RNA sequence: UGUUGGCCUGGGAACGAGGAUCCGAGCCGUCCACACCGACCCCCUGGGGGGCACGGAGGAAAAGCGGUCGCCUAGACGGCUCGGGGAGUCAGUGGCGAGACCGACCCGAACAAGU
Numbered sequence: 001u002g003u004u005g006g007c008c009u010g011g012g013a014a015c016g017a018g019g020a021u022c023c024g025a026g027c028c029g030u031c032c033a034c035a036c037c038g039a040c041c042c043c044c045u046g047g048g049g050g051g052c053a054c055g056g057a058g059g060a061a062a063a064g065c066g067g068u069c070g071c072c073u074a075g076a077c078g079g080c081u082c083g084g085g086g087a088g089u090c091a092g093u094g095g096c097g098a099g100a101c102c103g104a105c106c107c108g109a110a111c112a113a114g115u
Stems, first nucleotide, its partner, number of pairs: 003113003008108001010106002014089002022084008066102002068098005